[Rfam]
RNA: U2 spliceosomal RNA
Organism: Chara braunii
RNA sequence: AUACCUUUCUCGGGCUUUUGGCUAAGUAAGAUCAAGUGUCGUAUCUGUUCUGAUCAUCAGUUUAAUAUCUGAUCCGUGGUCCAACGGACCACAAAAAAAAAGAAGAAAAAAAAAGGGGGUCCUUAUGGGCGGGCCUGACUCCUUAUCCAUUCUGGGGAGCAUCAGUCUCCUAUUCCACAGGCGAGGGUCAACA
Numbered sequence: 001a002u003a004c005c006u007u008u009c010u011c012g013g014g015c016u017u018u019u020g021g022c023u024a025a026g027u028a029a030g031a032u033c034a035a036g037u038g039u040c041g042u043a044u045c046u047g048u049u050c051u052g053a054u055c056a057u058c059a060g061u062u063u064a065a066u067a068u069c070u071g072a073u074c075c076g077u078g079g080u081c082c083a084a085c086g087g088a089c090c091a092c093a094a095a096a097a098a099a100a101a102g103a104a105g106a107a108a109a110a111a112a113a114a115g116g117g118g119g120u121c122c123u124u125a126u127g128g129g130c131g132g133g134c135c136u137g138a139c140u141c142c143u144u145a146u147c148c149a150u151u152c153u154g155g156g157g158a159g160c161a162u163c164a165g166u167c168u169c170c171u172a173u174u175c176c177a178c179a180g181g182c183g184a185g186g187g188u189c190a191a192c193a
Stems, first nucleotide, its partner, number of pairs: 008031003012023002015020001052074003058071003076092007114144008128135002147186002150183001152181001154178001156176004